[Rfam]
RNA sequence: UAUCCCAUUUUAGUACCAUUUAUUUAUAACUGCAGGAUGAAUGGCUAUGCAAAUGGGAGAAAGGAAACCUGCUUAGUCUGAUGGGAAAAGUGGCUAUUAACCCAUUUUGCCUGAAGGCAAAGGGCAGAACAUGAUUUU
Numbered sequence: 001u002a003u004c005c006c007a008u009u010u011u012a013g014u015a016c017c018a019u020u021u022a023u024u025u026a027u028a029a030c031u032g033c034a035g036g037a038u039g040a041a042u043g044g045c046u047a048u049g050c051a052a053a054u055g056g057g058a059g060a061a062a063g064g065a066a067a068c069c070u071g072c073u074u075a076g077u078c079u080g081a082u083g084g085g086a087a088a089a090g091u092g093g094c095u096a097u098u099a100a101c102c103c104a105u106u107u108u109g110c111c112u113g114a115a116g117g118c119a120a121a122g123g124g125c126a127g128a129a130c131a132u133g134a135u136u137u138u
Stems, first nucleotide, its partner, number of pairs: 004057004016044004071125003088112001090110002

Overview
Rfam assigns this 138-nucleotide RNA from Callorhinchus milii to the family "Small nucleolar RNA SNORA29". The family is grouped with related families in Rfam's "SNORA20 clan". Rfam describes the family as follows. ACA29 is a member of the H/ACA class of snoRNA that guide the sites of modification of uridines to pseudouridines. The family has 26 seed sequences and 960 matches in Rfam 15.1. The family's RNA type in Rfam is H/ACA-box small nucleolar RNA.